The family of this 123-nucleotide RNA from Paramaledivibacter caminithermalis is "Molybdenum/Tungsten riboswitch aptamer (Moco RNA motif)". Rfam 15.1 lists 1,248 matches to the family in 836 species. The base pairs follow the family's consensus structure, which is taken from published work. The source organism's lineage runs through Bacteria, Bacillati, Peptostreptococcales, Caminicellaceae and Paramaledivibacter caminithermalis.
[Rfam]
RNA sequence: AAUGGAAUAUUUCUCCGAAUUUUUUAUCCUGUAGAGUUAUAAGCUUAUGGAUAGGAAAUCGAUAGGGUAUAAUUGGAAACGGUUAUGCCUCCCAGUGUGGAAAGGAGAAUAUAAAGCUAUAGC
Numbered sequence: 001a002a003u004g005g006a007a008u009a010u011u012u013c014u015c016c017g018a019a020u021u022u023u024u025u026a027u028c029c030u031g032u033a034g035a036g037u038u039a040u041a042a043g044c045u046u047a048u049g050g051a052u053a054g055g056a057a058a059u060c061g062a063u064a065g066g067g068u069a070u071a072a073u074u075g076g077a078a079a080c081g082g083u084u085a086u087g088c089c090u091c092c093c094a095g096u097g098u099g100g101a102a103a104g105g106a107g108a109a110u111a112u113a114a115a116g117c118u119a120u121a122g123c
Stems, first nucleotide, its partner, number of pairs: 011109006019059011034046004065090011091100002